[Rfam]
RNA sequence: GAGUAAGCCAAAUCCUCAGGUUGCGCCGUGUAAAAAAAAUCACUCAAAUGAUUCUGGCGUAACGACCAGUUCCCUGGUGUUGGCGCAGUAUUCGCGCACCCCGGUUUAUCC
Numbered sequence: 001g002a003g004u005a006a007g008c009c010a011a012a013u014c015c016u017c018a019g020g021u022u023g024c025g026c027c028g029u030g031u032a033a034a035a036a037a038a039a040u041c042a043c044u045c046a047a048a049u050g051a052u053u054c055u056g057g058c059g060u061a062a063c064g065a066c067c068a069g070u071u072c073c074c075u076g077g078u079g080u081u082g083g084c085g086c087a088g089u090a091u092u093c094g095c096g097c098a099c100c101c102c103g104g105u106u107u108a109u110c111c
Stems, first nucleotide, its partner, number of pairs: 020063008076100003083097004
RNA: ArcZ RNA